[Rfam]
Overview:
Rfam assigns this 36-nucleotide sequence to the family "DUF805b RNA". By type it is a cis-regulatory element. The sequence is in the family's curated seed alignment. The base pairs follow the family's consensus structure, which is taken from published work.
RNA sequence: UGAGGGGAAGCCGAAAACCUUGGAAGAGAGUAGGCG
Numbered sequence: 001u002g003a004g005g006g007g008a009a010g011c012c013g014a015a016a017a018c019c020u021u022g023g024a025a026g027a028g029a030g031u032a033g034g035c036g
Stems, first nucleotide, its partner, number of pairs: 002021004010035003